[Rfam]
RNA sequence: CGCCCGGUCGGACCCGUGGGGGGAUCCGUUCCGGGAUACGGGAGCGCCCCGUGCCGGA
Numbered sequence: 001c002g003c004c005c006g007g008u009c010g011g012a013c014c015c016g017u018g019g020g021g022g023g024a025u026c027c028g029u030u031c032c033g034g035g036a037u038a039c040g041g042g043a044g045c046g047c048c049c050c051g052u053g054c055c056g057g058a
Stems, first nucleotide, its partner, number of pairs: 001056002003035005009028004013023003040049003